[Rfam]
RNA sequence: GAGAGUCGACCUCUCAAAGUCGUCUUGCAGGCGAAGGCUUUAAACAACUCUAUGUUGCAAUAAUCAAAAGUUAUUGUGGUGAGCGAUAGAGAUAAGGCGUAGUAAAUAAAGAAUCAAUG
Numbered sequence: 001g002a003g004a005g006u007c008g009a010c011c012u013c014u015c016a017a018a019g020u021c022g023u024c025u026u027g028c029a030g031g032c033g034a035a036g037g038c039u040u041u042a043a044a045c046a047a048c049u050c051u052a053u054g055u056u057g058c059a060a061u062a063a064u065c066a067a068a069a070g071u072u073a074u075u076g077u078g079g080u081g082a083g084c085g086a087u088a089g090a091g092a093u094a095a096g097g098c099g100u101a102g103u104a105a106a107u108a109a110a111g112a113a114u115c116a117a118u119g
Stems, first nucleotide, its partner, number of pairs: 001015005016041006023034002026031001045119002048091006054080002057077003061073004096115002100111001

A member of the RNA family "Group II catalytic intron D1-D4-2" from Fluviispira multicolorata, 119 nucleotides long. Rfam links the family to the GO term Group II intron splicing. It scores 85 bits against the family's covariance model. Group II introns are found in rRNA, tRNA and mRNA of organelles in fungi, plants and protists, and also in mRNA in bacteria. NCBI's taxonomy places the organism under Bacteria, Pseudomonadati, Oligoflexia, Silvanigrellales, Fluviispira.